Eukaryotic large subunit ribosomal RNA: a 596-nucleotide part of an RNA from Babesia bovis. The base pairs follow the family's consensus structure, which is taken from published work. NCBI's taxonomy places the organism under Eukaryota, Sar, Aconoidasida, Piroplasmida, Babesia.
RNA sequence: UUUUCCUGAGAUGUACGAGGCUAUCCGCUGAAUUUAAGCAUAUAACUAAGCGGCAGACAAGAAAAUAACCAUGAUUCCCCUAGUAACGGCGAGUGAAGCGGGACUAGUCCAAAGUGCAAAGCCGGGCUCUGCCCCGCCUUGUGGCCUUUAGCGGCGGCGCCGGUGGCGAUUUACAAUAAAGUUUCUUGGAACAGGACGCCUCUGAGGGUGACAGCCCCGUUCUAUUGUUACUUCGUCCACUCCAAGGUCCGCCCGCACAGAGUCGCGUUCUUUGGGAUUUGAGCGCUAACGUGAGGUAGUCUUCUCACAAGACUAAAUACUUGCGCGAGCCCGAUAGCUUACAAGUACCGUGAGGGAAAGGUGAAAAGCACUCUGUAAAGAGGGUUAAAAGUACCUGAAAUUGCUGGUAGGGAAGCUUUUGGAACGAACGCUUUGCCCUGUGCCUCGGCACCUGGCCUCGGUCAUUUUCCGGUGCCUCUGAUUGAUACCCCCUUUGACUCGGUCUCCUACCCGGUUUCCCCUGUCUCUGGGUUUCUCUCACCGGCGCCCCUCAAUGCCCGCCGUACAAGUUCCAACCGACCCGUCUUGAAACACGG
Numbered sequence: 001u002u003u004u005c006c007u008g009a010g011a012u013g014u015a016c017g018a019g020g021c022u023a024u025c026c027g028c029u030g031a032a033u034u035u036a037a038g039c040a041u042a043u044a045a046c047u048a049a050g051c052g053g054c055a056g057a058c059a060a061g062a063a064a065a066u067a068a069c070c071a072u073g074a075u076u077c078c079c080c081u082a083g084u085a086a087c088g089g090c091g092a093g094u095g096a097a098g099c100g101g102g103a104c105u106a107g108u109c110c111a112a113a114g115u116g117c118a119a120a121g122c123c124g125g126g127c128u129c130u131g132c133c134c135c136g137c138c139u140u141g142u143g144g145c146c147u148u149u150a151g152c153g154g155c156g157g158c159g160c161c162g163g164u165g166g167c168g169a170u171u172u173a174c175a176a177u178a179a180a181g182u183u184u185c186u187u188g189g190a191a192c193a194g195g196a197c198g199c200c201u202c203u204g205a206g207g208g209u210g211a212c213a214g215c216c217c218c219g220u221u222c223u224a225u226u227g228u229u230a231c232u233u234c235g236u237c238c239a240c241u242c243c244a245a246g247g248u249c250c251g252c253c254c255g256c257a258c259a260g261a262g263u264c265g266c267g268u269u270c271u272u273u274g275g276g277a278u279u280u281g282a283g284c285g286c287u288a289a290c291g292u293g294a295g296g297u298a299g300u301c302u303u304c305u306c307a308c309a310a311g312a313c314u315a316a317a318u319a320c321u322u323g324c325g326c327g328a329g330c331c332c333g334a335u336a337g338c339u340u341a342c343a344a345g346u347a348c349c350g351u352g353a354g355g356g357a358a359a360g361g362u363g364a365a366a367a368g369c370a371c372u373c374u375g376u377a378a379a380g381a382g383g384g385u386u387a388a389a390a391g392u393a394c395c396u397g398a399a400a401u402u403g404c405u406g407g408u409a410g411g412g413a414a415g416c417u418u419u420u421g422g423a424a425c426g427a428a429c430g431c432u433u434u435g436c437c438c439u440g441u442g443c444c445u446c447g448g449c450a451c452c453u454g455g456c457c458u459c460g461g462u463c464a465u466u467u468u469c470c471g472g473u474g475c476c477u478c479u480g481a482u483u484g485a486u487a488c489c490c491c492c493u494u495u496g497a498c499u500c501g502g503u504c505u506c507c508u509a510c511c512c513g514g515u516u517u518c519c520c521c522u523g524u525c526u527c528u529g530g531g532u533u534u535c536u537c538u539c540a541c542c543g544g545c546g547c548c549c550c551u552c553a554a555u556g557c558c559c560g561c562c563g564u565a566c567a568a569g570u571u572c573c574a575a576c577c578g579a580c581c582c583g584u585c586u587u588g589a590a591a592c593a594c595g596g
Base pairs, nucleotide, nucleotide: 024055025053026052027051028050029049035042036041065072066071076103077102078101079100086094087093106314107313108312109311115143116142117141118140119139121137122136124134125133126132127131151256152255153253154252155251156250159248160247161246163240164239165238166237168234169233171230173228174227175226176225177224181197183196184195185194186193200204207217208216265286266285267284268283269282270281291308292307293306294305295304348355349354371382372381373380374379416578419575420574421573422572423571424570425569431454459560460559461558463556464555581596582595583594584593